[Rfam]
RNA sequence: AAAAAAGGAGCGCAGACUAACCCCACCGCGUCCUGCGGUAACGUCUGCAUGACCCACAUCGUGUGGG
Numbered sequence: 001a002a003a004a005a006a007g008g009a010g011c012g013c014a015g016a017c018u019a020a021c022c023c024c025a026c027c028g029c030g031u032c033c034u035g036c037g038g039u040a041a042c043g044u045c046u047g048c049a050u051g052a053c054c055c056a057c058a059u060c061g062u063g064u065g066g067g
Stems, first nucleotide, its partner, number of pairs: 012048006025039005053067005
Dot-bracket structure: ...........((((((.......(((((.....)))))...))))))....(((((.....)))))